[Rfam]
RNA sequence: UGCAAGUAUAUUACAAUUAAGAAGCAACUGUCCCUUGUAUAGAUCGUGUAGUAUUUU
Dot-bracket structure: .................((((..((....))..))))....................